[Rfam]
RNA sequence: GAGUGAGGACGACCUCACCGCUCUUCCGAGCGACUCCUGACGGGGACGGCCCCA
Numbered sequence: 001g002a003g004u005g006a007g008g009a010c011g012a013c014c015u016c017a018c019c020g021c022u023c024u025u026c027c028g029a030g031c032g033a034c035u036c037c038u039g040a041c042g043g044g045g046a047c048g049g050c051c052c053c054a
Stems, first nucleotide, its partner, number of pairs: 003018006042053004